[Rfam]
RNA sequence: CAAAUCGAGUGACAACAAGAGAAAGCACGCUUGUAAACAGCCAUGCCCUUGCAUGAAUGCCGACAAGCGUGCUCUCUCUCGUUGUCAAGCAAUU
Numbered sequence: 001c002a003a004a005u006c007g008a009g010u011g012a013c014a015a016c017a018a019g020a021g022a023a024a025g026c027a028c029g030c031u032u033g034u035a036a037a038c039a040g041c042c043a044u045g046c047c048c049u050u051g052c053a054u055g056a057a058u059g060c061c062g063a064c065a066a067g068c069g070u071g072c073u074c075u076c077u078c079u080c081g082u083u084g085u086c087a088a089g090c091a092a093u094u
Stems, first nucleotide, its partner, number of pairs: 010087005016081001020077002025072010